Source information
The record is a 99-nucleotide RNA from Striga asiatica, which matches "Small nucleolar RNA snoR27" in Rfam. A search with the family's covariance model found it, with a score of 48 bits. Clan: snR68 clan. Pairs were carried over by alignment from the consensus structure, which was predicted with WAR. On this family, see Brown et al., RNA 2001: "Multiple snoRNA gene clusters from Arabidopsis". Rfam links the family to the GO terms nucleolus and RNA processing.
RNA sequence: AUUGGAUCGAUGAUGUGUUGAAUUAUAUUGCGUUAUCUAUCCGAUUAUUUCCUGCUUGAAAAUGAAGAUAGUCUUUUUUAAUACUUGUUGAGAUUAUGU
Numbered sequence: 001a002u003u004g005g006a007u008c009g010a011u012g013a014u015g016u017g018u019u020g021a022a023u024u025a026u027a028u029u030g031c032g033u034u035a036u037c038u039a040u041c042c043g044a045u046u047a048u049u050u051c052c053u054g055c056u057u058g059a060a061a062a063u064g065a066a067g068a069u070a071g072u073c074u075u076u077u078u079u080a081a082u083a084c085u086u087g088u089u090g091a092g093a094u095u096a097u098g099u
Stems, first nucleotide, its partner, number of pairs: 001099002005095003